[Rfam]
RNA sequence: UACAACUGAUUGACCGAAACUCGGAAUGAAAGUCGUCACGUUGAGCUGAAACGAGUUAUCUGAUACUCCUACAUGCAUAGGAUGGUAGUAGCCUGAACAUGUAUGAAGCUAGGUAAAGUCGGCUGAAAUAGACCUAAGUUCUUUCUGGAAUAUGGUCUAUGAUAGGUCGGGGUGCUAUAAA
Numbered sequence: 001u002a003c004a005a006c007u008g009a010u011u012g013a014c015c016g017a018a019a020c021u022c023g024g025a026a027u028g029a030a031a032g033u034c035g036u037c038a039c040g041u042u043g044a045g046c047u048g049a050a051a052c053g054a055g056u057u058a059u060c061u062g063a064u065a066c067u068c069c070u071a072c073a074u075g076c077a078u079a080g081g082a083u084g085g086u087a088g089u090a091g092c093c094u095g096a097a098c099a100u101g102u103a104u105g106a107a108g109c110u111a112g113g114u115a116a117a118g119u120c121g122g123c124u125g126a127a128a129u130a131g132a133c134c135u136a137a138g139u140u141c142u143u144u145c146u147g148g149a150a151u152a153u154g155g156u157c158u159a160u161g162a163u164a165g166g167u168c169g170g171g172g173u174g175c176u177a178u179a180a181a
Base pairs, nucleotide, nucleotide: 018057019056020055021054022053023052031047032046033045058173059172060171061170068113069112070111071110072105073104074103075102076101077100078099084093085092120169121168122167123166124165128160129159130158131157132156133155135152136151140149141148